[Rfam]
RNA sequence: GAGUUAUCUUGUGCAGCAAGGUUAAGGUGAAAAGCCGGAGCCGUAGCGAAAGCGAGUCCGAACUGGGCGUGUAGUUGCGCAGGAUAGACCCGAAGCGAAGUGAUCUACCCAUGGCCAAGGCGAAUCCGCCGUAACAGGCGGAGGAGGCCUGAACUGAUGUUUGUUGCAAAAAGCUCGGAUGAGCUGUGGGUAGGGGUGAAAGGCUAAACAAACUUCGUGAUUGCUGGUU
Number, nucleotide and partner (000 for none) at each position: 001g000002a000003g000004u000005u086006a085007u084008c083009u082010u081011g080012u079013g078014c077015a076016g075017c074018a000019a000020g042021g041022u040023u039024a000025a000026g036027g035028u034029g000030a000031a000032a000033a000034g028035c027036c026037g000038g000039a023040g022041c021042c020043g000044u000045a000046g053047c052048g000049a000050a000051a000052g047053c046054g000055a000056g068057u067058c066059c065060g000061a000062a000063c000064u000065g059066g058067g057068c056069g000070u000071g000072u000073a000074g017075u016076u015077g014078c013079g012080c011081a010082g009083g008084a007085u006086a005087g000088a000089c227090c226091c000092g224093a000094a000095g000096c217097g216098a215099a214100g213101u212102g000103a000104u000105c193106u192107a191108c190109c189110c188111a187112u186113g185114g184115c183116c181117a000118a150119g149120g148121c147122g000123a000124a000125u142126c141127c140128g139129c138130c137131g000132u000133a000134a000135c000136a000137g130138g129139c128140g127141g126142a125143g000144g000145a000146g000147g121148c120149c119150u118151g000152a000153a000154c178155u177156g176157a000158u000159g174160u173161u172162u171163g000164u000165u000166g000167c000168a000169a000170a000171a162172a161173g160174c159175u000176c156177g155178g154179a000180u000181g116182a000183g115184c114185u113186g112187u111188g110189g109190g108191u107192a106193g105194g000195g205196g204197u203198g000199a000200a000201a000202g000203g197204c196205u195206a000207a000208a000209c000210a000211a000212a101213c100214u099215u098216c097217g096218u000219g000220a000221u000222u000223g000224c092225u000226g090227g089228u000229u000
The record is a 229-nucleotide part of an RNA from Candidatus Nitrospira inopinata, which matches "Bacterial large subunit ribosomal RNA" in Rfam. The source organism's lineage runs through Bacteria, Pseudomonadati, Nitrospirota, Nitrospiraceae and Nitrospira. The family's consensus secondary structure is taken from published work. A search with the family's covariance model found it, with a score of 2866 bits.